A member of the RNA family "Mammalian CPEB3 ribozyme" from Acipenser ruthenus, 78 nucleotides long. From the family's description: The mammalian CPEB3 ribozyme is a self cleaving RNA located in the second intron of the CPEB3 gene which belongs to a family of genes regulating messenger RNA polyadenylation. The source organism's lineage runs through Eukaryota, Euteleostomi, Acipenseroidei, Acipenserinae and Acipenser. The match comes from Rfam's covariance-model search (79 bits).
RNA sequence: AGUAGGAUGCAGGGGGCCAUAGCAGAAGCAUUUAUGUCACGGCCCCUGUCAGAUUCCUAAGAAUCUGCGAAUUCUGCU
Numbered sequence: 001a002g003u004a005g006g007a008u009g010c011a012g013g014g015g016g017c018c019a020u021a022g023c024a025g026a027a028g029c030a031u032u033u034a035u036g037u038c039a040c041g042g043c044c045c046c047u048g049u050c051a052g053a054u055u056c057c058u059a060a061g062a063a064u065c066u067g068c069g070a071a072u073u074c075u076g077c078u
Base pairs, nucleotide, nucleotide: 013046014045015044016043017042018041021078022077023076024075025074026073027072028040050067051066052065053064054063055062056061